The record is a 277-nucleotide RNA sequence from Colletotrichum salicis, which matches "Fungal signal recognition particle RNA" in Rfam. Its Rfam clan is "SRP clan". NCBI's taxonomy places the organism under Eukaryota, Fungi, Ascomycota, Pezizomycotina, Colletotrichum acutatum species complex. A search with the family's covariance model found it, with a score of 158 bits. The family's RNA type in Rfam is non-coding RNA gene.
RNA sequence: CGGCUGUAAUGGUCAAAUGGUUGAAGGCUUUCAUUACUCUUCUUCCGCUACCCCAUCUACAUUGGAACCCCCCAGCGGCGCCCAGUGCGAAUGCCGCGGUGGCCACCCACUCGCACGGGUAACCUGCGAUCGCUGCGUGUGGCCCUAAGCAAUGAAGAUGACACUUGAGGGAGGUCUCACUCUGCAGAGGCAUCUUCACCGUCGCAUGGCGUGCUGGAUUACGAUCGCUGGGGGCUUGGGGUAGUGGAUGAAGCUAGAGAUAUCGACUCUAAUUUUU
Numbered sequence: 001c002g003g004c005u006g007u008a009a010u011g012g013u014c015a016a017a018u019g020g021u022u023g024a025a026g027g028c029u030u031u032c033a034u035u036a037c038u039c040u041u042c043u044u045c046c047g048c049u050a051c052c053c054c055a056u057c058u059a060c061a062u063u064g065g066a067a068c069c070c071c072c073c074a075g076c077g078g079c080g081c082c083c084a085g086u087g088c089g090a091a092u093g094c095c096g097c098g099g100u101g102g103c104c105a106c107c108c109a110c111u112c113g114c115a116c117g118g119g120u121a122a123c124c125u126g127c128g129a130u131c132g133c134u135g136c137g138u139g140u141g142g143c144c145c146u147a148a149g150c151a152a153u154g155a156a157g158a159u160g161a162c163a164c165u166u167g168a169g170g171g172a173g174g175u176c177u178c179a180c181u182c183u184g185c186a187g188a189g190g191c192a193u194c195u196u197c198a199c200c201g202u203c204g205c206a207u208g209g210c211g212u213g214c215u216g217g218a219u220u221a222c223g224a225u226c227g228c229u230g231g232g233g234g235c236u237u238g239g240g241g242u243a244g245u246g247g248a249u250g251a252a253g254c255u256a257g258a259g260a261u262a263u264c265g266a267c268u269c270u271a272a273u274u275u276u277u
Base pairs, nucleotide, nucleotide: 002014003013004012019274020273021272022271023270025268026267028265033263034262037259038258039253040252041251042250044248045247046246047245048244049243050242051241052240053239070234071233073230074229075228076227077226079223080222082217083216084215085214086213087212088211089210091207092206093205094204096202097201098200099199101144103142104141105140106139108137111129112128113127114126115125117124118123145149153198154197155196156195157194158193159192164189165188166187171182172181173180